[Rfam]
RNA: mir-320 microRNA precursor family
RNA sequence: AUUACAUCGGGCUUUCUCUUCCUGGUUCUUCCUAGAGUCAGGAAAAUAUGGGUUGAGAGGGUGAAAAAAAUAACAC
Numbered sequence: 001a002u003u004a005c006a007u008c009g010g011g012c013u014u015u016c017u018c019u020u021c022c023u024g025g026u027u028c029u030u031c032c033u034a035g036a037g038u039c040a041g042g043a044a045a046a047u048a049u050g051g052g053u054u055g056a057g058a059g060g061g062u063g064a065a066a067a068a069a070a071u072a073a074c075a076c
Stems, first nucleotide, its partner, number of pairs: 014059005021052004029044005